The family of this 53-nucleotide RNA sequence from Leptolyngbya sp. ES-bin-22 is "Nitrogen stress-induced RNA 1".
By type it is a small RNA.
For this family Rfam cites "Heterocyst-specific transcription of NsiR1, a non-coding RNA encoded in a tandem array of direct repeats in cyanobacteria" (Ionescu et al., J Mol Biol, 2010).
The family has 17 seed sequences and 962 matches in Rfam 15.1.
RNA sequence: UGGUAGAUGCACCCUGAUAAUAGCCUCCGGCGCUUGUCGUCGGGGCUUUUUCU
Numbered sequence: 001u002g003g004u005a006g007a008u009g010c011a012c013c014c015u016g017a018u019a020a021u022a023g024c025c026u027c028c029g030g031c032g033c034u035u036g037u038c039g040u041c042g043g044g045g046c047u048u049u050u051u052c053u
Stems, first nucleotide, its partner, number of pairs: 002013003025045008